[Rfam]
RNA sequence: AAAAGGAACAUUGAGAAUAGGCAAUAGGAGGUUGCGCCUUCUCAAGAUGACCCUUACGAGGGUUCACGGAAGAACUACAAGGUAAGAAUGUAGUUUGGUCCUUUU
Numbered sequence: 001a002a003a004a005g006g007a008a009c010a011u012u013g014a015g016a017a018u019a020g021g022c023a024a025u026a027g028g029a030g031g032u033u034g035c036g037c038c039u040u041c042u043c044a045a046g047a048u049g050a051c052c053c054u055u056a057c058g059a060g061g062g063u064u065c066a067c068g069g070a071a072g073a074a075c076u077a078c079a080a081g082g083u084a085a086g087a088a089u090g091u092a093g094u095u096u097g098g099u100c101c102u103u104u105u
Stems, first nucleotide, its partner, number of pairs: 002104006009097002011045007021035005049064006073095007

Parabacteroides-1 RNA: a 105-nucleotide RNA. The family's RNA type in Rfam is small RNA.